[Rfam]
RNA: Hepatitis C virus stem-loop SL2531 and SL2549AU
RNA sequence: UCCUGGCCGAUGCGCGGGUCUGCGCAUGUCUGUGGCUCAUGCUACUCAUAAGCCAAGUUGAGGCUGCAAUGG
Number, nucleotide and partner (000 for none) at each position: 001u000002c000003c000004u000005g000006g023007c022008c000009g020010a019011u018012g000013c000014g000015c000016g000017g000018g011019u010020c009021u000022g007023c006024g067025c066026a000027u000028g064029u063030c062031u061032g000033u000034g058035g000036c000037u055038c000039a000040u000041g000042c000043u000044a000045c000046u000047c000048a000049u000050a000051a000052g000053c000054c000055a037056a000057g000058u034059u000060g000061a031062g030063g029064c028065u000066g025067c024068a000069a000070u000071g000072g000